Rfam assigns this 94-nucleotide sequence from Musa troglodytarum to the family "Small nucleolar RNA Z266". Rfam 15.1 lists 719 matches to the family in 213 species. The family's RNA type in Rfam is C/D-box small nucleolar RNA. Lineage of the source: Eukaryota > Embryophyta > Tracheophyta > Spermatophyta > Musa. The literature on the family includes a 2003 paper in Nucleic Acids Res by Chen et al., "The high diversity of snoRNAs in plants: identification and comparative study of 120 snoRNA genes from Oryza sativa".

RNA sequence: AUAUGGCAGGCGUGAUGAAUCAAUUAGAUGUGCGAAUGAAAGUUUUCUCAUGUGCUCAACUUUUGAGGCAUAUUAGCAUUCUGACUUGCCAAAU
Dot-bracket structure: ((.(((((((..........................................................................))))))).))